[Rfam]
RNA sequence: AUCAAAAGGAAAAUAGCGAUUCGUAUAAUUUCGGGAAUAGGCCCGGAAGUUUCUACGAGAUCACCGUAAAUGAUCUGGCUACGAACAAACGAAGGAUGACA
Dot-bracket structure: ...................((((((...(((((((......))))))).........((((((.......))))))...))))))................
RNA: Purine riboswitch aptamer
Organism: Paenibacillus sp. FSL H7-0331